[Rfam]
The family of this 56-nucleotide RNA from Devosia soli is "terC RNA".
RNA sequence: GGGCAGCGCCGGGCCCCUCUGGUCAUGGUCCCCCAUGGCGAUGUCGGAGCUGCUCC
Numbered sequence: 001g002g003g004c005a006g007c008g009c010c011g012g013g014c015c016c017c018u019c020u021g022g023u024c025a026u027g028g029u030c031c032c033c034c035a036u037g038g039c040g041a042u043g044u045c046g047g048a049g050c051u052g053c054u055c056c
Stems, first nucleotide, its partner, number of pairs: 006050002009047004022039007
Taxonomically the source falls in Devosia (Bacteria, Pseudomonadota, Alphaproteobacteria, Hyphomicrobiales). By type it is a cis-regulatory element.